[Rfam]
RNA sequence: UGCGAGCGUCGCGACUGGCGUUGAGAUGGAUACCAUCGGGGAGCGACUGGCACGGACCGACCGCACGCCUGGGCCGGUACG
Numbered sequence: 001u002g003c004g005a006g007c008g009u010c011g012c013g014a015c016u017g018g019c020g021u022u023g024a025g026a027u028g029g030a031u032a033c034c035a036u037c038g039g040g041g042a043g044c045g046a047c048u049g050g051c052a053c054g055g056a057c058c059g060a061c062c063g064c065a066c067g068c069c070u071g072g073g074c075c076g077g078u079a080c081g
Stems, first nucleotide, its partner, number of pairs: 004051001008047005015040002017069005026036004058076002061073002
Rfam assigns this 81-nucleotide sequence from Agromyces albus to the family "ZMP/ZTP riboswitch aptamer (pfl RNA motif)". The match comes from Rfam's covariance-model search (46 bits).